[Rfam]
RNA sequence: AAGUUCCUCUACUCGGCAAGGAGUAGCGAUCCACCGAGACACCGAGUCAUGGGCCGAAGCCGGCGACGGUCAGGUUAAGCGUUGACAGGUGAAAGUGCAGGCACGGUAUUGAGCUCCGAAAUCACCGUUGGGAACGCCGACCUUGUUGGGUGACGGGGAAGGCAAUACGAGGUUCCGCGCUAGCGCGAGCGGAUCACUCGGUUCCCCGGAGUCAGCAGACUC
Numbered sequence: 001a002a003g004u005u006c007c008u009c010u011a012c013u014c015g016g017c018a019a020g021g022a023g024u025a026g027c028g029a030u031c032c033a034c035c036g037a038g039a040c041a042c043c044g045a046g047u048c049a050u051g052g053g054c055c056g057a058a059g060c061c062g063g064c065g066a067c068g069g070u071c072a073g074g075u076u077a078a079g080c081g082u083u084g085a086c087a088g089g090u091g092a093a094a095g096u097g098c099a100g101g102c103a104c105g106g107u108a109u110u111g112a113g114c115u116c117c118g119a120a121a122u123c124a125c126c127g128u129u130g131g132g133a134a135c136g137c138c139g140a141c142c143u144u145g146u147u148g149g150g151u152g153a154c155g156g157g158g159a160a161g162g163c164a165a166u167a168c169g170a171g172g173u174u175c176c177g178c179g180c181u182a183g184c185g186c187g188a189g190c191g192g193a194u195c196a197c198u199c200g201g202u203u204c205c206c207c208g209g210a211g212u213c214a215g216c217a218g219a220c221u222c
Stems, first nucleotide, its partner, number of pairs: 012038005020032003024188001026186002040091004046086004050081002052076004059070004111213001113212006130206006136163003141157003168200004172195001174193005
Dot-bracket structure: ...........(((((...(((.[.[[..))).))))).((((..((((((((((...((((....))))..))))...)).)))).))))...................(.((((((...........(((((((((..(((...........)))...)))....(((((.(((((......]].]))))).).))))))))))))))))).........
Rfam assigns this 222-nucleotide RNA sequence from Beta vulgaris to the family "Group II catalytic intron D1-D4-6".
It scores 164 bits against the family's covariance model.
A reference for the family is Bonen and Vogel (2001), "The ins and outs of group II introns", Trends Genet.
Taxonomically the source falls in Beta vulgaris (Eukaryota, Magnoliopsida, eudicotyledons, Beta).
Gene Ontology term of the family: Group II intron splicing.
Group II introns are found in rRNA, tRNA and mRNA of organelles in fungi, plants and protists, and also in mRNA in bacteria.